[Rfam]
RNA sequence: GAGAAAUGAGGAAAACAGCACAAGUCUUGAUUUACCGUGAAGACUUGAAUCCAACUCUGAUCUCGUGGCU
Numbered sequence: 001g002a003g004a005a006a007u008g009a010g011g012a013a014a015a016c017a018g019c020a021c022a023a024g025u026c027u028u029g030a031u032u033u034a035c036c037g038u039g040a041a042g043a044c045u046u047g048a049a050u051c052c053a054a055c056u057c058u059g060a061u062c063u064c065g066u067g068g069c070u
Stems, first nucleotide, its partner, number of pairs: 001064004
Small nucleolar RNA SNORD19: a 70-nucleotide RNA sequence from Scleropages formosus. The family's RNA type in Rfam is C/D-box small nucleolar RNA. Gene Ontology terms of the family: nucleolus and RNA processing. The family is grouped with related families in Rfam's "SNORD19 clan". A search with the family's covariance model found it, with a score of 42 bits.